Shown here is an 85-nucleotide RNA sequence from Allolucifera butyrica, a member of the family "c-di-GMP-I riboswitch aptamer". The match comes from Rfam's covariance-model search (75 bits).
RNA sequence: UUUUAUAAUGGGCAAACCCGCCGAAAGACGGGGACGCAAAGCUAUGGGUCUAAGGACACGGGUCUAUGACUGCCAGGCCGCCAAU
Numbered sequence: 001u002u003u004u005a006u007a008a009u010g011g012g013c014a015a016a017c018c019c020g021c022c023g024a025a026a027g028a029c030g031g032g033g034a035c036g037c038a039a040a041g042c043u044a045u046g047g048g049u050c051u052a053a054g055g056a057c058a059c060g061g062g063u064c065u066a067u068g069a070c071u072g073c074c075a076g077g078c079c080g081c082c083a084a085u
Stems, first nucleotide, its partner, number of pairs: 012037002017032004022027001041078003045075003048070003055064003

Taxonomically the source falls in Allolucifera (Bacteria, Bacillati, Negativicutes, Veillonellales).
Its family is annotated with cyclic-di-GMP binding in the Gene Ontology.